[Rfam]
RNA sequence: AUACUAUAUGAAACUUGCUGGAGAUAGGUAAUGCACAACCGUCAAGAGUGUAAGGAAAUAUAGUAUAAUCCACGUGGUAGAUGCAGUUGUAGGUUCCAACUGGUGCACAUCUUAUUAGAGACAGCAACCAAGCUCGAAGUAAGCAGAGCGAAGAUAGAAGCUAUACCUCGAUAGGCUUAAUGAGGUGCUUAACAGUCUGACACUAACUGAACAAUAAGUGUCU
Numbered sequence: 001a002u003a004c005u006a007u008a009u010g011a012a013a014c015u016u017g018c019u020g021g022a023g024a025u026a027g028g029u030a031a032u033g034c035a036c037a038a039c040c041g042u043c044a045a046g047a048g049u050g051u052a053a054g055g056a057a058a059u060a061u062a063g064u065a066u067a068a069u070c071c072a073c074g075u076g077g078u079a080g081a082u083g084c085a086g087u088u089g090u091a092g093g094u095u096c097c098a099a100c101u102g103g104u105g106c107a108c109a110u111c112u113u114a115u116u117a118g119a120g121a122c123a124g125c126a127a128c129c130a131a132g133c134u135c136g137a138a139g140u141a142a143g144c145a146g147a148g149c150g151a152a153g154a155u156a157g158a159a160g161c162u163a164u165a166c167c168u169c170g171a172u173a174g175g176c177u178u179a180a181u182g183a184g185g186u187g188c189u190u191a192a193c194a195g196u197c198u199g200a201c202a203c204u205a206a207c208u209g210a211a212c213a214a215u216a217a218g219u220g221u222c223u
Base pairs, nucleotide, nucleotide: 001066002065003064004063005062006061007060008059009058014054015053016052024042025041027040028039079112080111081110082109084102085101086100087099088098089097132149133148134147135146140191141190142189143188144187165186166185167184168183169182199222200221201220202219203218204217

Shown here is a 223-nucleotide sequence, a member of the family "RAGATH-7 RNA". A reference for the family is Weinberg et al. (2015), "New classes of self-cleaving ribozymes revealed by comparative genomics analysis", Nat Chem Biol. The base pairs follow the family's consensus structure, which is taken from published work.